[Rfam]
RNA sequence: UGGCUUAUGAUGAUAAUAUACUUUAUCUUAGCGGAUUUCAGUGAGAUUUUUUAUCAAGGAUCUGAUUGUUACACACGCUGAAGCUA
Numbered sequence: 001u002g003g004c005u006u007a008u009g010a011u012g013a014u015a016a017u018a019u020a021c022u023u024u025a026u027c028u029u030a031g032c033g034g035a036u037u038u039c040a041g042u043g044a045g046a047u048u049u050u051u052u053a054u055c056a057a058g059g060a061u062c063u064g065a066u067u068g069u070u071a072c073a074c075a076c077g078c079u080g081a082a083g084c085u086a
Stems, first nucleotide, its partner, number of pairs: 001086005
Source information: Shown here is an 86-nucleotide sequence from Lathyrus oleraceus, a member of the family "Small nucleolar RNA R11/Z151". It is annotated as a C/D-box small nucleolar RNA. The family's consensus secondary structure was predicted with PFOLD. Its family is annotated with RNA processing and nucleolus in the Gene Ontology.